About this RNA: Rfam assigns this 89-nucleotide sequence from Streptomyces sp. A0642 to the family "nrdJ RNA".
RNA sequence: ACCUGCUCCGGGCGACGCAAGGCGUACGCGGCGUCCGAAGCAUCAGACACACACGGUGCCCGGGGAAGUUCUCGGCACUUCAGGGCGUU
Number, nucleotide and partner (000 for none) at each position: 001a000002c000003c000004u042005g041006c040007u039008c000009c037010g036011g035012g034013c033014g032015a000016c031017g000018c000019a000020a000021g000022g000023c000024g000025u000026a000027c000028g000029c000030g000031g016032c014033g013034u012035c011036c010037g009038a000039a007040g006041c005042a004043u000044c000045a000046g000047a000048c000049a000050c000051a000052c000053a000054c000055g000056g078057u077058g076059c075060c074061c000062g072063g071064g000065g000066a000067a000068g000069u000070u000071c063072u062073c000074g060075g059076c058077a057078c056079u000080u000081c000082a000083g000084g000085g000086c000087g000088u000089u000
The match comes from Rfam's covariance-model search (72 bits). Rfam classes the family as a small RNA. Pairs were carried over by alignment from the consensus structure, which is taken from published work.